[Rfam]
Rfam assigns this 79-nucleotide sequence from Ancylostoma ceylanicum to the family "SmY spliceosomal RNA".
On this family, see Maroney et al., RNA 1996: "Direct analysis of nematode cis- and trans-spliceosomes: a functional role for U5 snRNA in spliced leader addition trans-splicing and the identification of novel Sm snRNPs".
The base pairs follow the family's consensus structure, which is taken from published work.
The family has 61 seed sequences and 408 matches in Rfam 15.1.
NCBI's taxonomy places the organism under Eukaryota, Ecdysozoa, Ancylostomatidae, Ancylostomatinae, Ancylostoma.

RNA sequence: AAAUCUGAAAUGAGUACUCAGGGCCUUUGGCAAGACCCUUUGUUUGAAUUUUUGGAAACCUCUGCUUAGGCAGGGGUUA
Numbered sequence: 001a002a003a004u005c006u007g008a009a010a011u012g013a014g015u016a017c018u019c020a021g022g023g024c025c026u027u028u029g030g031c032a033a034g035a036c037c038c039u040u041u042g043u044u045u046g047a048a049u050u051u052u053u054g055g056a057a058a059c060c061u062c063u064g065c066u067u068a069g070g071c072a073g074g075g076g077u078u079a
Stems, first nucleotide, its partner, number of pairs: 021038003025034003057078009